[Rfam]
RNA sequence: UGUAAAAACCUAUGCAAGUCGCUCUGGAUAACAGCGUCUGCUAAAUGACAAUAA
Numbered sequence: 001u002g003u004a005a006a007a008a009c010c011u012a013u014g015c016a017a018g019u020c021g022c023u024c025u026g027g028a029u030a031a032c033a034g035c036g037u038c039u040g041c042u043a044a045a046u047g048a049c050a051a052u053a054a
Base pairs, nucleotide, nucleotide: 013043014041015040016039020036021035022034023033025031
The record is a 54-nucleotide sequence from Megalops atlanticus, which matches "UnaL2 LINE 3' element" in Rfam.
By type it is a cis-regulatory element.
About the family: The eel long interspersed element (LINE) UnaL2 and its partner short interspersed element (SINE) share a conserved 3' tail containing a stem-loop that is critical for their retrotransposition.
Rfam links the family to the GO term transposition, RNA-mediated.
The family has 30 seed sequences and 493,311 matches in Rfam 15.1.
NCBI's taxonomy places the organism under Eukaryota, Metazoa, Eumetazoa, Elopiformes, Megalops.